[Rfam]
RNA sequence: GAAUGAAGGAAGCAUGGUAAUGUGCAUAGAAAUUGAUUUGGGUCUCUAGGCAUGCCCUCUCUAAUGUCUUUCGGAUUUGAUUUGGGGGCAUGGUUCUGCAGUAAAACG
Numbered sequence: 001g002a003a004u005g006a007a008g009g010a011a012g013c014a015u016g017g018u019a020a021u022g023u024g025c026a027u028a029g030a031a032a033u034u035g036a037u038u039u040g041g042g043u044c045u046c047u048a049g050g051c052a053u054g055c056c057c058u059c060u061c062u063a064a065u066g067u068c069u070u071u072c073g074g075a076u077u078u079g080a081u082u083u084g085g086g087g088g089c090a091u092g093g094u095u096c097u098g099c100a101g102u103a104a105a106a107c108g
Stems, first nucleotide, its partner, number of pairs: 012025004040091001042089003050081001055074002